[Rfam]
RNA sequence: CAAUUGAAACAUACGCUUCCAUUAAGUGCCGCUUCUCUUGUUCACAAUUUUGUGUUUUUUGAGUUGUGUAAUCUUUUUGGAACAGCCAGCGUGGAUUGGGAUGAUUUUAAACCUAUUGAUGAUAUCUUUAGUAUGACUACUUGAUUUCUCAAUGUUUAUUUUCCUCUCGAUCUUGGUACUCUCGGUUUCUCUCCUUGAGUUAUACUGAUUUGUAUAGUCGCUGUCUGACGUAUAUGUUUCAACUGACUCGUCUUGAAACACGA
Number, nucleotide and partner (000 for none) at each position: 001c245002a244003a000004u242005u241006g240007a239008a238009a237010c236011a235012u234013a000014c000015g000016c000017u000018u000019c000020c079021a078022u000023u000024a075025a074026g073027u000028g000029c000030c000031g000032c000033u000034u000035c000036u000037c000038u000039u000040g000041u000042u000043c000044a000045c000046a000047a000048u000049u000050u000051u000052g000053u000054g000055u000056u000057u000058u000059u000060u000061g000062a000063g000064u000065u000066g000067u000068g000069u000070a000071a000072u000073c026074u025075u024076u000077u000078u021079g020080g000081a000082a000083c227084a226085g225086c000087c223088a222089g221090c220091g219092u000093g000094g000095a000096u000097u000098g000099g000100g000101a000102u000103g000104a000105u000106u000107u000108u000109a000110a000111a000112c000113c000114u000115a000116u000117u000118g000119a000120u000121g000122a000123u000124a000125u000126c000127u000128u000129u000130a000131g000132u000133a000134u000135g000136a000137c000138u000139a000140c000141u000142u000143g000144a000145u000146u000147u000148c000149u000150c000151a000152a000153u000154g000155u000156u000157u000158a000159u000160u000161u000162u000163c000164c000165u000166c000167u000168c000169g000170a000171u000172c000173u000174u000175g000176g000177u000178a000179c000180u000181c000182u000183c000184g000185g000186u000187u000188u000189c000190u000191c000192u000193c000194c000195u000196u000197g000198a000199g000200u000201u000202a000203u000204a000205c000206u000207g000208a000209u000210u000211u000212g000213u000214a000215u000216a000217g000218u000219c091220g090221c089222u088223g087224u000225c085226u084227g083228a000229c000230g000231u000232a000233u000234a012235u011236g010237u009238u008239u007240c006241a005242a004243c000244u002245g001246a000247c000248u263249c262250g261251u260252c000253u000254u000255g000256a000257a000258a000259c000260a251261c250262g249263a248

The record is a 263-nucleotide part of an RNA from Theileria orientalis, which matches "Eukaryotic large subunit ribosomal RNA" in Rfam. The source organism's lineage runs through Eukaryota, Sar, Apicomplexa, Theileria and Theileria orientalis. Rfam 15.1 lists 107,465 matches to the family in 2,616 species. It scores 3119 bits against the family's covariance model.